[Rfam]
RNA: FMN riboswitch aptamer (RFN element)
RNA sequence: AGAUGUCUUCAGGGCGGGGCGGAAUUCCCCACCGGCGGUAGGUGGAUCGUCGCAAGGCGCAUCCACGAGCCCGCGAGCGCCUGCGGCGGCCUGCCCGUCGCAGGGUCAGCAGAUCCGGUGAGAUGCCGGAGCCGACGGUCACAGUCCGGAUGGAAGAAGACGACC
Numbered sequence: 001a002g003a004u005g006u007c008u009u010c011a012g013g014g015c016g017g018g019g020c021g022g023a024a025u026u027c028c029c030c031a032c033c034g035g036c037g038g039u040a041g042g043u044g045g046a047u048c049g050u051c052g053c054a055a056g057g058c059g060c061a062u063c064c065a066c067g068a069g070c071c072c073g074c075g076a077g078c079g080c081c082u083g084c085g086g087c088g089g090c091c092u093g094c095c096c097g098u099c100g101c102a103g104g105g106u107c108a109g110c111a112g113a114u115c116c117g118g119u120g121a122g123a124u125g126c127c128g129g130a131g132c133c134g135a136c137g138g139u140c141a142c143a144g145u146c147c148g149g150a151u152g153g154a155a156g157a158a159g160a161c162g163a164c165c
Stems, first nucleotide, its partner, number of pairs: 004162007017029003031145002033134002035074004069132002077110002114130005136148003